[Rfam]
RNA: Group II catalytic intron D1-D4-2
Organism: Niabella ginsenosidivorans
RNA sequence: GAGAGUUGGGGUCUCUCGUAACCAACAUGCAGGUGUUGGUUACAAACUACUUCUAAGCUGCUGCGGUUAAGUACGUGGAGAGAAGCGUUAGAAGAAAAGGCGCUGUUAAAAGUGUCAGGU
Numbered sequence: 001g002a003g004a005g006u007u008g009g010g011g012u013c014u015c016u017c018g019u020a021a022c023c024a025a026c027a028u029g030c031a032g033g034u035g036u037u038g039g040u041u042a043c044a045a046a047c048u049a050c051u052u053c054u055a056a057g058c059u060g061c062u063g064c065g066g067u068u069a070a071g072u073a074c075g076u077g078g079a080g081a082g083a084a085g086c087g088u089u090a091g092a093a094g095a096a097a098a099g100g101c102g103c104u105g106u107u108a109a110a111a112g113u114g115u116c117a118g119g120u
Base pairs, nucleotide, nucleotide: 001017002016003015004014005013018043019042020041021040022039023038025036026035027034028033048119050094051093053091054090055089056088061078062077064075065074067073099116100115101114102113103112104111